[Rfam]
RNA sequence: UUGGCUACCGGAUCGACUUCUCGGGUCACUACCAAGUAUUCGCGCAAUGCGAUGGCAUGCAGAUGCUC
Numbered sequence: 001u002u003g004g005c006u007a008c009c010g011g012a013u014c015g016a017c018u019u020c021u022c023g024g025g026u027c028a029c030u031a032c033c034a035a036g037u038a039u040u041c042g043c044g045c046a047a048u049g050c051g052a053u054g055g056c057a058u059g060c061a062g063a064u065g066c067u068c
Stems, first nucleotide, its partner, number of pairs: 005062002008059001011030001013028001015027004037054002040052005

Rfam assigns this 68-nucleotide sequence from Mycobacterium leprae to the family "ASdes TB sRNA". It scores 52 bits against the family's covariance model. Rfam classes the family as a small RNA.